The record is a 97-nucleotide RNA sequence from Roseateles sp. DAIF2, which matches "SAH (S-adenosyl-L-homocysteine) riboswitch aptamer" in Rfam.
It scores 56 bits against the family's covariance model.
Pairs were carried over by alignment from the consensus structure, which is taken from published work.
On this family, see Wang et al., Mol Cell 2008: "Riboswitches that sense S-adenosylhomocysteine and activate genes involved in coenzyme recycling".
Lineage of the source: Bacteria > Pseudomonadota > Betaproteobacteria > Sphaerotilaceae > Roseateles.
[Rfam]
RNA sequence: CCUUCCGAGGAGCGUUGCAACCUCUCGCACCCUUCAGAGGCCAGGCUCGGAUCGUCCCAGGACUUGUCCCGGGCCACUGCAACCGCGCUCACCCGCA
Numbered sequence: 001c002c003u004u005c006c007g008a009g010g011a012g013c014g015u016u017g018c019a020a021c022c023u024c025u026c027g028c029a030c031c032c033u034u035c036a037g038a039g040g041c042c043a044g045g046c047u048c049g050g051a052u053c054g055u056c057c058c059a060g061g062a063c064u065u066g067u068c069c070c071g072g073g074c075c076a077c078u079g080c081a082a083c084c085g086c087g088c089u090c091a092c093c094c095g096c097a
Stems, first nucleotide, its partner, number of pairs: 004051005021040005